[Rfam]
RNA sequence: ACCAGAGUCUCGGAUGGCAACCUCACAGUGCCAUCGAGAGCGUUUUAUGUAAAUUCAGUAACCCUCCUAUGGCGUAAAUGAUGCGCCACUAGCGAAAGAGAAAAGCCAAAGGGCGUAGUCAUAGGGUAUGACGGAUGAGAAGUCCAAUCUUCAUGUUGGCUUGCUACCGUAGCAUUCCAUCGUGAAUUUAACGAGUGGUUACAUCAACC
Numbered sequence: 001a002c003c004a005g006a007g008u009c010u011c012g013g014a015u016g017g018c019a020a021c022c023u024c025a026c027a028g029u030g031c032c033a034u035c036g037a038g039a040g041c042g043u044u045u046u047a048u049g050u051a052a053a054u055u056c057a058g059u060a061a062c063c064c065u066c067c068u069a070u071g072g073c074g075u076a077a078a079u080g081a082u083g084c085g086c087c088a089c090u091a092g093c094g095a096a097a098g099a100g101a102a103a104a105g106c107c108a109a110a111g112g113g114c115g116u117a118g119u120c121a122u123a124g125g126g127u128a129u130g131a132c133g134g135a136u137g138a139g140a141a142g143u144c145c146a147a148u149c150u151u152c153a154u155g156u157u158g159g160c161u162u163g164c165u166a167c168c169g170u171a172g173c174a175u176u177c178c179a180u181c182g183u184g185a186a187u188u189u190a191a192c193g194a195g196u197g198g199u200u201a202c203a204u205c206a207a208c209c
Stems, first nucleotide, its partner, number of pairs: 001045001008039006016032004058202006065126008084115004089111002092106001150186006157179003164172003
Rfam assigns this 209-nucleotide sequence to the family "RT-7 RNA". It is one of the family's seed sequences.